[Rfam]
RNA sequence: CGGUCUCCGCAGUUUUGCGUGUUUAGCACCGCGUUUUGUUGGACAUUGCUGUGCAAACCUACGCAAAGCUGAGGGUACCG
Numbered sequence: 001c002g003g004u005c006u007c008c009g010c011a012g013u014u015u016u017g018c019g020u021g022u023u024u025a026g027c028a029c030c031g032c033g034u035u036u037u038g039u040u041g042g043a044c045a046u047u048g049c050u051g052u053g054c055a056a057a058c059c060u061a062c063g064c065a066a067a068g069c070u071g072a073g074g075g076u077a078c079c080g
Base pairs, nucleotide, nucleotide: 003078004077006075007074008073010071011070012069013068014067015066016065017064018063019062021059022057023056024055026054027053028052029051031049032048
RNA: mir-19 microRNA precursor family